[Rfam]
RNA sequence: UUCGCGAAAAGGCAAGCCGGCCGUGAGGCCGUGCACGCAAAGUGACGGGUCUCCGUUAGGGAGACGGCCGCAUUACCGAA
Numbered sequence: 001u002u003c004g005c006g007a008a009a010a011g012g013c014a015a016g017c018c019g020g021c022c023g024u025g026a027g028g029c030c031g032u033g034c035a036c037g038c039a040a041a042g043u044g045a046c047g048g049g050u051c052u053c054c055g056u057u058a059g060g061g062a063g064a065c066g067g068c069c070g071c072a073u074u075a076c077c078g079a080a
Stems, first nucleotide, its partner, number of pairs: 012038002017033001018031005041074004046070003049065006

c-di-GMP-I riboswitch aptamer: an 80-nucleotide sequence from Roseiconus nitratireducens. The base pairs follow the family's consensus structure, which is taken from published work. A search with the family's covariance model found it, with a score of 51 bits. The source organism's lineage runs through Bacteria, Planctomycetota, Planctomycetia, Pirellulaceae and Roseiconus.